[Rfam]
RNA sequence: CGCCUUUCUGCUUCCUUUCUCUGAGCAGCAGCCUCAUCAUCAGGAUAGGUGAACUGCACACUGUAGUAUAGGUCAGGUUGCUUCU
Numbered sequence: 001c002g003c004c005u006u007u008c009u010g011c012u013u014c015c016u017u018u019c020u021c022u023g024a025g026c027a028g029c030a031g032c033c034u035c036a037u038c039a040u041c042a043g044g045a046u047a048g049g050u051g052a053a054c055u056g057c058a059c060a061c062u063g064u065a066g067u068a069u070a071g072g073u074c075a076g077g078u079u080g081c082u083u084c085u
Stems, first nucleotide, its partner, number of pairs: 002078004049061003
Overview
The family of this 85-nucleotide sequence from Mesorhizobium sp. WSM3876 is "Rhizobiales sRNA Atu_Ti3". The family's RNA type in Rfam is small RNA. Pairs were carried over by alignment from the consensus structure, which was predicted with WAR. A reference for the family is Wilms et al. (2012), "Deep sequencing uncovers numerous small RNAs on all four replicons of the plant pathogen Agrobacterium tumefaciens", RNA Biol. The match comes from Rfam's covariance-model search (68 bits).